U4 spliceosomal RNA: a 138-nucleotide sequence from Pteropus vampyrus. On this family, see Zwieb, Nucleic Acids Res 1997: "The uRNA database". It is annotated as a spliceosomal small nuclear RNA. NCBI's taxonomy places the organism under Eukaryota, Metazoa, Mammalia, Pteropodinae, Pteropus. Gene Ontology terms of the family: U4 snRNP and spliceosomal tri-snRNP complex assembly. The base pairs follow the family's consensus structure, which is taken from published work. About the family: U4 small nuclear RNA (U4 snRNA) is a component of the major U2-dependent spliceosome.

RNA sequence: AGCUUUGUGCAGUGGCAAUAUCGUAGCCAAUAAGGUUUAUCUGAGGCGCGAUUAUUGCUAAUUGAAAAAAAAAAAAGAACCUAAACAUUGUUUUUCAUCCAAGAAAGAUAUAAAAAUACAUGUUCAUUCUACUAUGAG
Numbered sequence: 001a002g003c004u005u006u007g008u009g010c011a012g013u014g015g016c017a018a019u020a021u022c023g024u025a026g027c028c029a030a031u032a033a034g035g036u037u038u039a040u041c042u043g044a045g046g047c048g049c050g051a052u053u054a055u056u057g058c059u060a061a062u063u064g065a066a067a068a069a070a071a072a073a074a075a076a077g078a079a080c081c082u083a084a085a086c087a088u089u090g091u092u093u094u095u096c097a098u099c100c101a102a103g104a105a106a107g108a109u110a111u112a113a114a115a116a117u118a119c120a121u122g123u124u125c126a127u128u129c130u131a132c133u134a135u136g137a138g
Stems, first nucleotide, its partner, number of pairs: 020052005026047003034042002088113001089110008127138003